Overview
The record is a 94-nucleotide RNA from Hordeum vulgare, which matches "Small nucleolar RNA Z157/R69/R10" in Rfam. A reference for the family is Chen et al. (2003), "The high diversity of snoRNAs in plants: identification and comparative study of 120 snoRNA genes from Oryza sativa", Nucleic Acids Res. Rfam classes the family as a C/D-box small nucleolar RNA. Clan: SNORD52 clan. NCBI's taxonomy places the organism under Eukaryota, Poales, Triticodae, Hordeum, Hordeum vulgare.

[Rfam]
RNA sequence: CUGCGGCGGUGAUGACAAAUUUGUGGACUAGAGUUUCUGAUCCCGCCUCUUCAGCGGCAUCUGCAGACAACCCCUUGGCUGUCUGAGCACCCAG
Number, nucleotide and partner (000 for none) at each position: 001c094002u093003g092004c000005g090006g088007c087008g000009g000010u000011g000012a000013u000014g000015a000016c000017a000018a000019a000020u000021u000022u000023g000024u000025g000026g000027a000028c000029u000030a000031g000032a000033g000034u066035u065036u000037c063038u000039g000040a000041u059042c000043c057044c056045g055046c054047c000048u000049c000050u000051u000052c000053a000054g046055c045056g044057g043058c000059a041060u000061c000062u000063g037064c000065a035066g034067a000068c000069a000070a000071c000072c000073c000074c000075u000076u000077g000078g000079c000080u000081g000082u000083c000084u000085g000086a000087g007088c006089a000090c005091c000092c003093a002094g001